[Rfam]
RNA sequence: UGUGCAGUGAUGAGGUGAAUUGAGAUGGAUAGGCGACGCCGAGGAUGAGCCGCUUCCAAUCAAAACGACUUCUUCUUCCACUGAGCACA
Numbered sequence: 001u002g003u004g005c006a007g008u009g010a011u012g013a014g015g016u017g018a019a020u021u022g023a024g025a026u027g028g029a030u031a032g033g034c035g036a037c038g039c040c041g042a043g044g045a046u047g048a049g050c051c052g053c054u055u056c057c058a059a060u061c062a063a064a065a066c067g068a069c070u071u072c073u074u075c076u077u078c079c080a081c082u083g084a085g086c087a088c089a
Stems, first nucleotide, its partner, number of pairs: 001089005
This 89-nucleotide RNA sequence from Adiantum capillus-veneris belongs to the Rfam family "Small nucleolar RNA Z152/R70/R12/". The match comes from Rfam's covariance-model search (52 bits). Rfam links the family to the GO terms nucleolus and RNA processing.